[Rfam]
RNA sequence: GACGCACUUCUAUUCACUACGGAUCGUCCGGCACGUACCUGCCGGUGAAGGAGAAAAAA
Numbered sequence: 001g002a003c004g005c006a007c008u009u010c011u012a013u014u015c016a017c018u019a020c021g022g023a024u025c026g027u028c029c030g031g032c033a034c035g036u037a038c039c040u041g042c043c044g045g046u047g048a049a050g051g052a053g054a055a056a057a058a059a
Stems, first nucleotide, its partner, number of pairs: 010051002013049004028045006
msiK RNA: a 59-nucleotide sequence from Klugiella xanthotipulae. Taxonomically the source falls in Klugiella (Bacteria, Actinomycetota, Actinomycetes, Micrococcales). A search with the family's covariance model found it, with a score of 66 bits. It is annotated as a cis-regulatory element.